[Rfam]
RNA sequence: AAAUGAAAGCAGAAGCACCCGCUUCUCGCCUUAGUUGAGUAUAUCGCUGGGCUAGAUAAAGUAUUCCUUAUUUUUUUAAGUAAGGCAGACUGUUGGCGGGUUCUGGAUAGGAACCUGUUUUUUUAUUGCAUU
Numbered sequence: 001a002a003a004u005g006a007a008a009g010c011a012g013a014a015g016c017a018c019c020c021g022c023u024u025c026u027c028g029c030c031u032u033a034g035u036u037g038a039g040u041a042u043a044u045c046g047c048u049g050g051g052c053u054a055g056a057u058a059a060a061g062u063a064u065u066c067c068u069u070a071u072u073u074u075u076u077u078a079a080g081u082a083a084g085g086c087a088g089a090c091u092g093u094u095g096g097c098g099g100g101u102u103c104u105g106g107a108u109a110g111g112a113a114c115c116u117g118u119u120u121u122u123u124u125a126u127u128g129c130a131u132u
Base pairs, nucleotide, nucleotide: 011026012025013024014023015022016021028052029051030050034047036046037045038044095119096118097117098116099115100114101113102112103111104110
A member of the RNA family "Ribosomal protein L20 leader" from Enterococcus faecalis, 132 nucleotides long. Rfam classes the family as a cis-regulatory leader. A reference for the family is Zengel and Lindahl (1994), "Diverse mechanisms for regulating ribosomal protein synthesis in Escherichia coli", Prog Nucleic Acid Res Mol Biol. Rfam describes the family as follows. This family is a putative r-protein leader autoregulatory structure found in B. subtilis and other low-GC Gram-positive bacteria. It is located in the 5' untranslated regions of mRNAs encoding initiation factor 3 followed by ribosomal proteins L35 and L20 (infC-rpmI-rplT). The base pairs follow the family's consensus structure, which was predicted with CMfinder.